[Rfam]
RNA: mir-9193 microRNA precursor family
RNA sequence: CUCGGGGGAGGGGUCCCUCGGCCCGGAUUGGGAGAGGGCAUAGGCCAGGCCGAGGGACCCCACUGGUACACG
Numbered sequence: 001c002u003c004g005g006g007g008g009a010g011g012g013g014u015c016c017c018u019c020g021g022c023c024c025g026g027a028u029u030g031g032g033a034g035a036g037g038g039c040a041u042a043g044g045c046c047a048g049g050c051c052g053a054g055g056g057a058c059c060c061c062a063c064u065g066g067u068a069c070a071c072g
Stems, first nucleotide, its partner, number of pairs: 004069001006067001008063001010061014025046002028043003032039001